[Rfam]
RNA sequence: AGCAAUAAAUAUUCAAUAUAAUAAACCAAUUGGACUCGGGGGCAGUACCCGGCGCCUCCACCAUAACCUUUUAAAAUUGUUUAAUAUUAAAUCAAUAUAAUGGGGGCGAAACAGGAUCGACAAGGGCGUAAAGAUUGAAAGUUUGCUCGGUAUUGUACCACCGUUAUCGGGCUAAAAUCUAGUUGCAAACGACAACUAUGCUGAAGCACGUCUCGCUGCUUAA
Numbered sequence: 001a002g003c004a005a006u007a008a009a010u011a012u013u014c015a016a017u018a019u020a021a022u023a024a025a026c027c028a029a030u031u032g033g034a035c036u037c038g039g040g041g042g043c044a045g046u047a048c049c050c051g052g053c054g055c056c057u058c059c060a061c062c063a064u065a066a067c068c069u070u071u072u073a074a075a076a077u078u079g080u081u082u083a084a085u086a087u088u089a090a091a092u093c094a095a096u097a098u099a100a101u102g103g104g105g106g107c108g109a110a111a112c113a114g115g116a117u118c119g120a121c122a123a124g125g126g127c128g129u130a131a132a133g134a135u136u137g138a139a140a141g142u143u144u145g146c147u148c149g150g151u152a153u154u155g156u157a158c159c160a161c162c163g164u165u166a167u168c169g170g171g172c173u174a175a176a177a178u179c180u181a182g183u184u185g186c187a188a189a190c191g192a193c194a195a196c197u198a199u200g201c202u203g204a205a206g207c208a209c210g211u212c213u214c215g216c217u218g219c220u221u222a223a
Base pairs, nucleotide, nucleotide: 001147002146003145004144005143014137015136016135017134026126027125030123031122032121036052037051038050039049040048053108054107055106056105057104058103059102148163149162150161151160
RNA: permuted transfer-messenger RNA
Organism: Liberibacter crescens